[Rfam]
RNA sequence: CAAGGACAACGGCAAACCCGGUGCGAGCCGGGGACGCAAAGCCACGGGGCCCAACGGGGGUCAGCCGGGCCACCCAC
Number, nucleotide and partner (000 for none) at each position: 001c000002a000003a000004g000005g000006a000007c000008a000009a000010c000011g000012g037013c036014a000015a000016a000017c032018c031019c030020g029021g028022u027023g000024c000025g000026a000027g022028c021029c020030g019031g018032g017033g000034a000035c000036g013037c012038a000039a000040a000041g070042c069043c068044a000045c067046g066047g065048g062049g061050c060051c059052c058053a000054a000055c000056g000057g000058g052059g051060g050061u049062c048063a000064g000065c047066c046067g045068g043069g042070c041071c000072a000073c000074c000075c000076a000077c000
A member of the RNA family "c-di-GMP-I riboswitch aptamer" from a Frankiales bacterium, 77 nucleotides long. It scores 50 bits against the family's covariance model.